RNA sequence: UAUGGCAUGCAGGGGUACUCGUUGAAUCAACGGGUUGAGAAAAACCCUUCGUACCAGUACGGAUAAUGCCGAUGCUGGGAGCAUGCUCGUUGGAUUA
Numbered sequence: 001u002a003u004g005g006c007a008u009g010c011a012g013g014g015g016u017a018c019u020c021g022u023u024g025a026a027u028c029a030a031c032g033g034g035u036u037g038a039g040a041a042a043a044a045c046c047c048u049u050c051g052u053a054c055c056a057g058u059a060c061g062g063a064u065a066a067u068g069c070c071g072a073u074g075c076u077g078g079g080a081g082c083a084u085g086c087u088c089g090u091u092g093g094a095u096u097a
Stems, first nucleotide, its partner, number of pairs: 006085005011048004016042001017035007054078004060071003
A member of the RNA family "TPP riboswitch aptamer (THI element)" from Candidimonas sp. SYP-B2681, 97 nucleotides long. A search with the family's covariance model found it, with a score of 56 bits.